RNA: mir-252 microRNA precursor family
Organism: Gongylonema pulchrum
RNA sequence: GUGUCAUUCUAAGUAGUAGUGCCGCAGGUAACAGCACAUGAGUUUACCUGCUCUCUGCUGCUUAAUAUGACUA
Numbered sequence: 001g002u003g004u005c006a007u008u009c010u011a012a013g014u015a016g017u018a019g020u021g022c023c024g025c026a027g028g029u030a031a032c033a034g035c036a037c038a039u040g041a042g043u044u045u046a047c048c049u050g051c052u053c054u055c056u057g058c059u060g061c062u063u064a065a066u067a068u069g070a071c072u073a
Base pairs, nucleotide, nucleotide: 003071004070005069006068007067010064011063012062013061014060015059016058017057018056019055024051025050026049027048028047029046030045